RNA sequence: GAAAGAUCGGAUUAUCAACAACUGUCCGAUUGGGCGUAUAAGAUGCCCCAAUCAAUUAGU
Numbered sequence: 001g002a003a004a005g006a007u008c009g010g011a012u013u014a015u016c017a018a019c020a021a022c023u024g025u026c027c028g029a030u031u032g033g034g035c036g037u038a039u040a041a042g043a044u045g046c047c048c049c050a051a052u053c054a055a056u057u058a059g060u
Stems, first nucleotide, its partner, number of pairs: 005031008032048006